[Rfam]
RNA sequence: GUAGCGGGACGGGCCCCUCUGGCGGCGCUUCGGCGGCGUGAUGUCGGACCGCCUUC
Numbered sequence: 001g002u003a004g005c006g007g008g009a010c011g012g013g014c015c016c017c018u019c020u021g022g023c024g025g026c027g028c029u030u031c032g033g034c035g036g037c038g039u040g041a042u043g044u045c046g047g048a049c050c051g052c053c054u055u056c
Stems, first nucleotide, its partner, number of pairs: 006050002010046003022039003026035003

Description: A member of the RNA family "terC RNA" from Brevundimonas naejangsanensis, 56 nucleotides long. The match comes from Rfam's covariance-model search (49 bits). Rfam classes the family as a cis-regulatory element. The organism belongs to Brevundimonas, within Bacteria.